The family of this 183-nucleotide RNA sequence from Cohnella cholangitidis is "6S / SsrS RNA". Rfam's curators write: E. coli 6S RNA was the first non coding RNA to be sequenced, but its function was unknown until recently. It consists of 184 nucleotides that fold into an extended hairpin structure with a large single-stranded internal bulge. The 6S RNA specifically associates with RNA polymerase holoenzyme containing the sigma70 specificity factor. This interaction represses expression from a sigma70-dependent promoter during stationary phase. 6S RNA homologs have recently been identified in most bacterial genomes. The family's consensus secondary structure is taken from published work. A search with the family's covariance model found it, with a score of 111 bits. The family has 150 seed sequences and 5,006 matches in Rfam 15.1. The family's RNA type in Rfam is non-coding RNA gene.
RNA sequence: AUAAUCCUGCCUUGUGCGUUACGACGCUCUAAUGUUUUGAACCAAUGUUUGUUUCCAGGGAGCUCUAGAUUGCCAAGUGGCUGACAUGCCCUCGAAAAGGGAAGUCAAAAGCUGGGCUGCGGGCACCCACCUGCCAAAGCAGGUUCAGAAACAUGCACGUCGGACGGCAAUGGCGGGUUUUCU
Dot-bracket structure: ..((.((((((((((.(((..............((((((((((..............(((.((((...(..(((.(((.....((...((((.....))))..)).....))).))))..)))).))).............)))))).))))...........))))))).)))))).))...